[Rfam]
Shown here is an 83-nucleotide sequence from Sinocyclocheilus rhinocerous, a member of the family "mir-128 microRNA precursor family". For this family Rfam cites "Identification of microRNAs from different tissues of chicken embryo and adult chicken" (Xu et al., FEBS Lett, 2006). The source organism's lineage runs through Eukaryota, Opisthokonta, Chordata, Gnathostomata and Sinocyclocheilus. The family has 57 seed sequences and 1,337 matches in Rfam 15.1. It scores 82 bits against the family's covariance model.
RNA sequence: CAAUAGUAGGGGAGGGGGCCGUUACACUGUAAGAGAUGGUAGCACUGGUCUCACAGUGAACCGGUCUCUUUUCCUGCUAUUCA
Numbered sequence: 001c002a003a004u005a006g007u008a009g010g011g012g013a014g015g016g017g018g019c020c021g022u023u024a025c026a027c028u029g030u031a032a033g034a035g036a037u038g039g040u041a042g043c044a045c046u047g048g049u050c051u052c053a054c055a056g057u058g059a060a061c062c063g064g065u066c067u068c069u070u071u072u073c074c075u076g077c078u079a080u081u082c083a
Base pairs, nucleotide, nucleotide: 006077007076008075009074010073015068016067017066018065019064020063021062025058026057027056028055029054030053033052034051035050